RNA sequence: GCUAAUCUUCAGGGCAGGGUGUAACUCCCUACCGGCGGUAAAUUAAAUCUAGUAUUUAAAAGCCCGCGAGCGCUUUUUAUUUAUAUAAAAAGGUCUAGCAGAUUUGGUGUGACUCCAAAGCCGACAGUUAAAGUCUGGAUGAAAGAAGAUAGUA
Number, nucleotide and partner (000 for none) at each position: 001g000002c000003u152004a000005a150006u149007c148008u147009u146010c145011a000012g000013g000014g000015c000016a000017g029018g028019g027020u000021g000022u000023a000024a000025c000026u000027c019028c018029c017030u000031a134032c133033c123034g122035g067036c066037g065038g064039u000040a000041a000042a000043u000044u000045a000046a000047a000048u000049c000050u000051a000052g000053u000054a000055u000056u000057u000058a000059a000060a000061a000062g121063c120064c038065c037066g036067c035068g000069a000070g099071c098072g000073c000074u000075u000076u000077u000078u000079a000080u000081u000082u000083a000084u000085a000086u000087a000088a000089a000090a000091a000092g000093g000094u000095c000096u000097a000098g071099c070100a000101g000102a000103u119104u118105u117106g116107g115108u000109g000110u000111g000112a000113c000114u000115c107116c106117a105118a104119a103120g063121c062122c034123g033124a000125c137126a136127g135128u000129u000130a000131a000132a000133g032134u031135c127136u126137g125138g000139a000140u000141g000142a000143a000144a000145g010146a009147a008148g007149a006150u005151a000152g003153u000154a000